[Rfam]
RNA sequence: UGGGAGCAAGACACAGAGGUCAUCAGGUAAGCCCAAAGGUGGCCUCUCACUAAUGCUCCCUAGAUCAAACGCCCUCUGAUGACUGUGGGCGCUUAAGAAAUGCUCCAUGGACAGAUACGGGGCGAACAUGA
Numbered sequence: 001u002g003g004g005a006g007c008a009a010g011a012c013a014c015a016g017a018g019g020u021c022a023u024c025a026g027g028u029a030a031g032c033c034c035a036a037a038g039g040u041g042g043c044c045u046c047u048c049a050c051u052a053a054u055g056c057u058c059c060c061u062a063g064a065u066c067a068a069a070c071g072c073c074c075u076c077u078g079a080u081g082a083c084u085g086u087g088g089g090c091g092c093u094u095a096a097g098a099a100a101u102g103c104u105c106c107a108u109g110g111a112c113a114g115a116u117a118c119g120g121g122g123c124g125a126a127c128a129u130g131a
Stems, first nucleotide, its partner, number of pairs: 002060006015047010070124006083110003087105004

Background
Shown here is a 131-nucleotide sequence from Nematostella vectensis, a member of the family "Small Cajal body specific RNA 8". The match comes from Rfam's covariance-model search (71 bits). On this family, see Darzacq et al., EMBO J 2002: "Cajal body-specific small nuclear RNAs: a novel class of 2'-O-methylation and pseudouridylation guide RNAs". Rfam describes the family as follows. scaRNAs are a specific class of small nuclear RNAs which localise to the Cajal bodies and guide the modification of RNA polymerase II transcribed spliceosomal RNAs U1, U2, U4, U5 and U12. U92 belong to the H/ACA box class of guide RNAs as it has the predicted hairpin-hinge-hairpin-tail structure, conserved H/ACA-box motifs and is found associated with GAR1. By type it is a small Cajal body RNA. NCBI's taxonomy places the organism under Eukaryota, Cnidaria, Anthozoa, Edwardsiidae, Nematostella. Rfam links the family to the GO terms nucleolus, Cajal body and RNA processing.